This 57-nucleotide sequence belongs to the Rfam family "Glutamine riboswitch aptamer (glnA leader)". A reference for the family is Ames and Breaker (2011), "Bacterial aptamers that selectively bind glutamine", RNA Biol. The sequence is in the family's curated seed alignment.
RNA sequence: UUCGUUCAUCAGAGAAGACCCUGACGGAAGUAGGUAAUGACACCGAAGGAACGCAUC
Numbered sequence: 001u002u003c004g005u006u007c008a009u010c011a012g013a014g015a016a017g018a019c020c021c022u023g024a025c026g027g028a029a030g031u032a033g034g035u036a037a038u039g040a041c042a043c044c045g046a047a048g049g050a051a052c053g054c055a056u057c
Stems, first nucleotide, its partner, number of pairs: 003053005009024004027054001033044003
Dot-bracket structure: ..(((((.((((........))))..[.....(((......)))....)))))]...